[Rfam]
RNA sequence: CCGGCUCCGGUUCACGCCCGCGACCUCCGCGUGCGACCCGGCGGCC
Numbered sequence: 001c002c003g004g005c006u007c008c009g010g011u012u013c014a015c016g017c018c019c020g021c022g023a024c025c026u027c028c029g030c031g032u033g034c035g036a037c038c039c040g041g042c043g044g045c046c
Stems, first nucleotide, its partner, number of pairs: 003046003007041004015035003019031004